[Rfam]
RNA sequence: UGUAAAUACGCUCCUUUGUGAGUGUUUUUGAAUUAGGUAUAGAGAAACUGAUUUUGCCGUCAUGAUUUCUCUAUGCUUUUAUUAUACCA
Number, nucleotide and partner (000 for none) at each position: 001u000002g000003u000004a029005a028006a027007u000008a025009c024010g023011c022012u021013c020014c000015u000016u000017u000018g000019u000020g013021a012022g011023u010024g009025u008026u000027u006028u005029u004030g000031a000032a000033u000034u000035a078036g077037g076038u075039a074040u073041a072042g071043a070044g069045a068046a067047a066048c000049u000050g000051a000052u000053u000054u000055u000056g000057c000058c000059g000060u000061c000062a000063u000064g000065a000066u047067u046068u045069c044070u043071c042072u041073a040074u039075g038076c037077u036078u035079u000080u000081a000082u000083u000084a000085u000086a000087c000088c000089a000
RNA: ctRNA